[Rfam]
RNA sequence: UAAGGGCAGGUGUGAUGACUUCAAUUAGAUGUGUGAGGCAAUUUUGGUCUGUGAACGCAGCGAUCGAGGCUUAUUCCAUUCAUUUCGUCUGACUUGCCCUUA
Number, nucleotide and partner (000 for none) at each position: 001u102002a101003a100004g099005g098006g097007c096008a095009g094010g093011u000012g000013u000014g000015a000016u000017g000018a000019c000020u000021u000022c000023a000024a000025u000026u000027a000028g000029a000030u000031g000032u000033g000034u000035g000036a000037g000038g000039c000040a000041a000042u000043u000044u000045u000046g000047g000048u000049c000050u000051g000052u000053g000054a000055a000056c000057g000058c000059a000060g000061c000062g000063a000064u000065c000066g000067a000068g000069g000070c000071u000072u000073a000074u000075u000076c000077c000078a000079u000080u000081c000082a000083u000084u000085u000086c000087g000088u000089c000090u000091g000092a000093c010094u009095u008096g007097c006098c005099c004100u003101u002102a001
RNA: Small nucleolar RNA Z266
Organism: Ceratopteris richardii